Background: Rfam assigns this 79-nucleotide RNA sequence from Hermetia illucens to the family "drz-agam-1 ribozyme". The match comes from Rfam's covariance-model search (40 bits).
RNA sequence: UACUACCAAACCCUAUCUCCACCUCCACGUGGUGAUCGCUGGGAGUCGUUUCUUAAUAAAAAACUGCAGACGGAGAGGG
Numbered sequence: 001u002a003c004u005a006c007c008a009a010a011c012c013c014u015a016u017c018u019c020c021a022c023c024u025c026c027a028c029g030u031g032g033u034g035a036u037c038g039c040u041g042g043g044a045g046u047c048g049u050u051u052c053u054u055a056a057u058a059a060a061a062a063a064c065u066g067c068a069g070a071c072g073g074a075g076a077g078g079g
Base pairs, nucleotide, nucleotide: 012079013078014077016075018073019072021033022032023031045067046066048064049063050062051061053059
The literature on the family includes a 2009 paper in Science by Webb et al., "Widespread occurrence of self-cleaving ribozymes".